The family of this 184-nucleotide RNA from Macaca nemestrina is "U2 spliceosomal RNA".
The family's RNA type in Rfam is spliceosomal small nuclear RNA.
Rfam's curators write: U2 is a small nuclear RNA (snRNA) component of the spliceosome (involved in pre-mRNA splicing). Complementary binding between U2 snRNA (in an area lying towards the 5' end but 3' to hairpin I) and the branchpoint sequence (BPS) of the intron results the bulging out of an unpaired adenosine, on the BPS, which initiates a nucleophilic attack at the intronic 5' splice site, thus starting the first of two transesterification reactions that mediate splicing.
The family's consensus secondary structure is taken from published work.
The source organism's lineage runs through Eukaryota, Opisthokonta, Deuterostomia, Eutheria and Macaca.
[Rfam]
RNA sequence: AUUGCUUUUCGGCUUUUUGGCUAAGAUCAGUGUGUUCUUAUCAGUUGGAUAUUUGUAUACGUUCUCUAUCCCAGAACAACAUGUUAAGUGGGUUUUUGGAGCGGAGAAGUGGCAUAGGAGCUUGCUCCGUCCGUUCUACGAAUCGACCUGCUGUUGCAAUAUUUUCAAGAACGGUGCACCGCUU
Number, nucleotide and partner (000 for none) at each position: 001a000002u000003u000004g000005c000006u000007u026008u025009u024010c000011g022012g021013c020014u019015u000016u000017u000018u000019g014020g013021c012022u011023a000024a009025g008026a007027u000028c000029a000030g000031u000032g000033u000034g000035u000036u000037c000038u000039u059040a058041u057042c055043a054044g053045u000046u000047g000048g000049a000050u000051a000052u000053u044054u043055g042056u000057a041058u040059a039060c000061g077062u076063u075064c074065u073066c000067u000068a000069u000070c000071c000072c000073a065074g064075a063076a062077c061078a000079a000080c000081a000082u000083g000084u000085u000086a000087a000088g000089u000090g000091g000092g000093u000094u000095u000096u000097u000098g000099g000100a000101g000102c000103g000104g000105a137106g136107a135108a134109g000110u000111g131112g130113c000114a000115u000116a000117g128118g127119a126120g125121c000122u000123u000124g000125c120126u119127c118128c117129g000130u112131c111132c000133g000134u108135u107136c106137u105138a000139c000140g177141a000142a175143u174144c173145g172146a000147c169148c000149u167150g166151c000152u000153g000154u000155u000156g000157c000158a000159a000160u000161a000162u000163u000164u000165u000166c150167a149168a000169g147170a000171a000172c145173g144174g143175u142176g000177c140178a000179c000180c000181g000182c000183u000184u000